[Rfam]
RNA sequence: UUGCCCGCAAGCGACUGGCGCAGUCAAGGUGGGCUCGACCACCGGGGAGCGAAGCACGUCCGCUACACCGCGCGCCUGGGUGUACGGG
Numbered sequence: 001u002u003g004c005c006c007g008c009a010a011g012c013g014a015c016u017g018g019c020g021c022a023g024u025c026a027a028g029g030u031g032g033g034c035u036c037g038a039c040c041a042c043c044g045g046g047g048a049g050c051g052a053a054g055c056a057c058g059u060c061c062g063c064u065a066c067a068c069c070g071c072g073c074g075c076c077u078g079g080g081u082g083u084a085c086g087g088g
Stems, first nucleotide, its partner, number of pairs: 005051001011050002015046002017076005029042004065083005